[Rfam]
RNA: GA-cis RNA
RNA sequence: UGUAGAAGAAAACACAAUGAACAAAGUUUAUUUUUAUAAAGGUUUCUGAUGAUUAGCUGCCGACUUAAAGAAGAGGCAAUACAUAUU
Numbered sequence: 001u002g003u004a005g006a007a008g009a010a011a012a013c014a015c016a017a018u019g020a021a022c023a024a025a026g027u028u029u030a031u032u033u034u035u036a037u038a039a040a041g042g043u044u045u046c047u048g049a050u051g052a053u054u055a056g057c058u059g060c061c062g063a064c065u066u067a068a069a070g071a072a073g074a075g076g077c078a079a080u081a082c083a084u085a086u087u
Stems, first nucleotide, its partner, number of pairs: 008047001010045004016032006056077002061073001064070002
Dot-bracket structure: .......(.((((..((((((.....)))))).........)))).)........((...(..((...))..)..))..........